[Rfam]
Rfam assigns this 129-nucleotide sequence from Trifolium subterraneum to the family "Small nucleolar RNA snoR74". The match comes from Rfam's covariance-model search (100 bits). For this family Rfam cites "Experimental RNomics: identification of 140 candidates for small non-messenger RNAs in the plant Arabidopsis thaliana" (Marker et al., Curr Biol, 2002). The source organism's lineage runs through Eukaryota, Viridiplantae, Euphyllophyta, Mesangiospermae and Trifolium. Its family is annotated with nucleolus and RNA processing in the Gene Ontology.
RNA sequence: AAAAAAGCAGUGGUCUGAUUCCUAUAUGAGCAGUCCUCUCGUUACCUUCAGGGAAAUUAAAUCCACUGUUAUUGGGUGAACCUAUGUUCCUUUUUUAUGACUGAAGGUUCAGUAAACGAUGGAAUAUCU
Numbered sequence: 001a002a003a004a005a006a007g008c009a010g011u012g013g014u015c016u017g018a019u020u021c022c023u024a025u026a027u028g029a030g031c032a033g034u035c036c037u038c039u040c041g042u043u044a045c046c047u048u049c050a051g052g053g054a055a056a057u058u059a060a061a062u063c064c065a066c067u068g069u070u071a072u073u074g075g076g077u078g079a080a081c082c083u084a085u086g087u088u089c090c091u092u093u094u095u096u097a098u099g100a101c102u103g104a105a106g107g108u109u110c111a112g113u114a115a116a117c118g119a120u121g122g123a124a125u126a127u128c129u
Stems, first nucleotide, its partner, number of pairs: 005048003012036001015033003062123004067118004077111007